[Rfam]
Shown here is a 56-nucleotide RNA sequence from Janthinobacterium sp. Marseille, a member of the family "nhaA-I RNA".

RNA sequence: GGGUGUUUACGCUGCAUACCGCAGCGGACAGGUAACGCGUCGGUCGGGCCGCCACG
Number, nucleotide and partner (000 for none) at each position: 001g000002g000003g000004u000005g029006u028007u027008u000009a000010c026011g025012c024013u023014g022015c000016a000017u000018a000019c000020c000021g000022c014023a013024g012025c011026g010027g007028a006029c005030a000031g000032g000033u000034a000035a000036c000037g000038c056039g055040u054041c000042g053043g052044u051045c000046g000047g000048g000049c000050c000051g044052c043053c042054a040055c039056g038
Rfam's curators write: Acidobacteria, Alphaproteobacteria, Betaproteobacteria and Gammaproteobacteria, Verrucomicrobia, cand. division NC10.